Record summary: Shown here is a 145-nucleotide RNA from Nonomuraea cypriaca, a member of the family "c-di-AMP riboswitch aptamer (ydaO/yuaA leader)".
[Rfam]
RNA sequence: CAGGUUGACAGGCCUAAUCCGCAUAUCGCGGAGCCGGGGACCCACUUUUCCGGGGUGAAUCGGACGCCAGCCGAGACUGCCUUCCGUAGAGCACUUCCAGGCUCGAACCCGUCAGCUAACCCGGUAGGCGACAUGGAAGCAAGGA
Numbered sequence: 001c002a003g004g005u006u007g008a009c010a011g012g013c014c015u016a017a018u019c020c021g022c023a024u025a026u027c028g029c030g031g032a033g034c035c036g037g038g039g040a041c042c043c044a045c046u047u048u049u050c051c052g053g054g055g056u057g058a059a060u061c062g063g064a065c066g067c068c069a070g071c072c073g074a075g076a077c078u079g080c081c082u083u084c085c086g087u088a089g090a091g092c093a094c095u096u097c098c099a100g101g102c103u104c105g106a107a108c109c110c111g112u113c114a115g116c117u118a119a120c121c122c123g124g125u126a127g128g129c130g131a132c133a134u135g136g137a138a139g140c141a142a143g144g145a
Base pairs, nucleotide, nucleotide: 012129013128014127018032019031020030033125034124035123036122037121038120043052053110054109055108061086062085063084064083089104090103091102092101